The record is a 78-nucleotide RNA sequence from an Erysipelotrichia bacterium, which matches "c-di-GMP-I-GGC riboswitch aptamer" in Rfam.
RNA sequence: ACUGAUAAAGGCAAACCACGAGUGAUUGUGGGACGCAAAACUAUAGGGUCUUCGAAUGAAGACAGCCAGUUACCAAAG
Numbered sequence: 001a002c003u004g005a006u007a008a009a010g011g012c013a014a015a016c017c018a019c020g021a022g023u024g025a026u027u028g029u030g031g032g033a034c035g036c037a038a039a040a041c042u043a044u045a046g047g048g049u050c051u052u053c054g055a056a057u058g059a060a061g062a063c064a065g066c067c068a069g070u071u072a073c074c075a076a077a078g
Stems, first nucleotide, its partner, number of pairs: 003075002011036002016031006034065001039071004046067002048063003
Dot-bracket structure: ..((......((...((((((....))))))..[))..((((...(((((..........))).]))))))..))...